Bacterial RNase P class A: a 429-nucleotide sequence from Pelomonas sp. HMWF004.
[Rfam]
RNA sequence: GAAGCAAGCCAGACCGCCGCUGGGGCAGGCAUGGAAACAUGGCCCUGGAGGAAGGUCCGGACUGCAUAGAGCGGCGUAGCAGCUAACGGCUGCCCGGCGAAAGCCGAGGAUCAGAGCAACAGAGACGAGUCGAUGGUGGGCGCACCGGGAGGUGGUCUAUCCGGCGGCCGCGAAAGCGGACGUGACGUGCGGCGAAAGCCGCGCGGCAUCGGGCGAAAGCCCGAACCGGGUAGCACCCUUUGGUGGGCAAAGCCCACCAAAGGGUGAAACGGGCAAUCUCUACGCGCAGCAACACCAAAUAGGCCAGCGUUGAUGCGGCUCGCGGAGCUGGCGGGUAGGUGGCACCGAGCCGGGCAGUGAUGCCCGGCCCAGAGGAAUGGCGGUCACGCCGUCCGAACCGCAAGGGGAGGGCGGUGCACAGAAUCCGGC
Numbered sequence: 001g002a003a004g005c006a007a008g009c010c011a012g013a014c015c016g017c018c019g020c021u022g023g024g025g026c027a028g029g030c031a032u033g034g035a036a037a038c039a040u041g042g043c044c045c046u047g048g049a050g051g052a053a054g055g056u057c058c059g060g061a062c063u064g065c066a067u068a069g070a071g072c073g074g075c076g077u078a079g080c081a082g083c084u085a086a087c088g089g090c091u092g093c094c095c096g097g098c099g100a101a102a103g104c105c106g107a108g109g110a111u112c113a114g115a116g117c118a119a120c121a122g123a124g125a126c127g128a129g130u131c132g133a134u135g136g137u138g139g140g141c142g143c144a145c146c147g148g149g150a151g152g153u154g155g156u157c158u159a160u161c162c163g164g165c166g167g168c169c170g171c172g173a174a175a176g177c178g179g180a181c182g183u184g185a186c187g188u189g190c191g192g193c194g195a196a197a198g199c200c201g202c203g204c205g206g207c208a209u210c211g212g213g214c215g216a217a218a219g220c221c222c223g224a225a226c227c228g229g230g231u232a233g234c235a236c237c238c239u240u241u242g243g244u245g246g247g248c249a250a251a252g253c254c255c256a257c258c259a260a261a262g263g264g265u266g267a268a269a270c271g272g273g274c275a276a277u278c279u280c281u282a283c284g285c286g287c288a289g290c291a292a293c294a295c296c297a298a299a300u301a302g303g304c305c306a307g308c309g310u311u312g313a314u315g316c317g318g319c320u321c322g323c324g325g326a327g328c329u330g331g332c333g334g335g336u337a338g339g340u341g342g343c344a345c346c347g348a349g350c351c352g353g354g355c356a357g358u359g360a361u362g363c364c365c366g367g368c369c370c371a372g373a374g375g376a377a378u379g380g381c382g383g384u385c386a387c388g389c390c391g392u393c394c395g396a397a398c399c400g401c402a403a404g405g406g407g408a409g410g411g412c413g414g415u416g417c418a419c420a421g422a423a424u425c426c427g428g429c
Base pairs, nucleotide, nucleotide: 012385013384014383015382016381017380018379020048021047022046023045024044025043026042028040055429057428058427059426060425061424062289063288064287065286069321070320071319072318074285075284076283077282078281079093080092081091082090083089094108095106096105097104098103109280110279114278115277116274117273131263134259135258136257137256138255139254140253141252293341294340295339296338303332304331305330306329307328308327314324315323316322349368350367351366352365353364354363355362356361
The family's consensus secondary structure is taken from published work. The source organism's lineage runs through Bacteria, Pseudomonadota, Betaproteobacteria, Sphaerotilaceae and Roseateles.